Shown here is a 140-nucleotide RNA sequence from Denticeps clupeoides, a member of the family "Small nucleolar RNA SNORD10". The literature on the family includes a 2001 paper in EMBO J by Huttenhofer et al., "RNomics: an experimental approach that identifies 201 candidates for novel, small, non-messenger RNAs in mouse". The family has 22 seed sequences and 433 matches in Rfam 15.1.

[Rfam]
RNA sequence: GUUUAAUGAUGAUCCCAAUGCGUGUCAACUGAUCCCAGAGUUCCUUGUGGUCUCUGUUCUCCAGCUUGCGUUCUGCUCGCUGGGGAUCCGGAGACCUCAGGGCUCUGGGGCCAUGAUCAGUACUUCUUGAGCCUGAAAAC
Numbered sequence: 001g002u003u004u005a006a007u008g009a010u011g012a013u014c015c016c017a018a019u020g021c022g023u024g025u026c027a028a029c030u031g032a033u034c035c036c037a038g039a040g041u042u043c044c045u046u047g048u049g050g051u052c053u054c055u056g057u058u059c060u061c062c063a064g065c066u067u068g069c070g071u072u073c074u075g076c077u078c079g080c081u082g083g084g085g086a087u088c089c090g091g092a093g094a095c096c097u098c099a100g101g102g103c104u105c106u107g108g109g110g111c112c113a114u115g116a117u118c119a120g121u122a123c124u125u126c127u128u129g130a131g132c133c134u135g136a137a138a139a140c
Stems, first nucleotide, its partner, number of pairs: 001140004043102005049096003